[Rfam]
Record summary:
The family of this 145-nucleotide sequence from Blautia sp. OF03-15BH is "drum RNA". From the family's description: Firmicutes, Bacteroidetes (1 example), Proteobacteria (2 examples), Spirochaetes (2 examples). The match comes from Rfam's covariance-model search (65 bits). The family's consensus secondary structure is taken from published work.
RNA sequence: CGGUGAUGAAGCAAUUGACUGGCUCGGUUUCAGCCGAUUGUGGAGCCAGACCGUGGGUUAUGCAGUAACCACAAGCCGAAAAGCCGAAUAGAUUCUUUGAACGCAGAUUGCGAAUGUCCGCUUUACUCGAAGAAAAACGCUUAGU
Numbered sequence: 001c002g003g004u005g006a007u008g009a010a011g012c013a014a015u016u017g018a019c020u021g022g023c024u025c026g027g028u029u030u031c032a033g034c035c036g037a038u039u040g041u042g043g044a045g046c047c048a049g050a051c052c053g054u055g056g057g058u059u060a061u062g063c064a065g066u067a068a069c070c071a072c073a074a075g076c077c078g079a080a081a082a083g084c085c086g087a088a089u090a091g092a093u094u095c096u097u098u099g100a101a102c103g104c105a106g107a108u109u110g111c112g113a114a115u116g117u118c119c120g121c122u123u124u125a126c127u128c129g130a131a132g133a134a135a136a137a138c139g140c141u142u143a144g145u
Stems, first nucleotide, its partner, number of pairs: 002047003011041007019033003024079004062140002083128001